[Rfam]
RNA: mir-2774 microRNA precursor family
RNA sequence: ACGACAUUCGAACCGUCGGUCUACCGAGCAAUGUCACCGCUCGGUGGAAGAUCUUCCCUUUGUCGC
Numbered sequence: 001a002c003g004a005c006a007u008u009c010g011a012a013c014c015g016u017c018g019g020u021c022u023a024c025c026g027a028g029c030a031a032u033g034u035c036a037c038c039g040c041u042c043g044g045u046g047g048a049a050g051a052u053c054u055u056c057c058c059u060u061u062g063u064c065g066c
Stems, first nucleotide, its partner, number of pairs: 004063003010057001012055001015052003020048010